[Rfam]
RNA: Nucleoid-associated noncoding RNA 4 (CssrE)
RNA sequence: UGUCGGAUAGGCGUUUAUGCCGCAUCCGACAUUUGCACAAGAUGCCUGAUGCGACGCUGUCCGCGUCUUAUCAGGCC
Numbered sequence: 001u002g003u004c005g006g007a008u009a010g011g012c013g014u015u016u017a018u019g020c021c022g023c024a025u026c027c028g029a030c031a032u033u034u035g036c037a038c039a040a041g042a043u044g045c046c047u048g049a050u051g052c053g054a055c056g057c058u059g060u061c062c063g064c065g066u067c068u069u070a071u072c073a074g075g076c077c
Stems, first nucleotide, its partner, number of pairs: 002030007010021004044076008053067005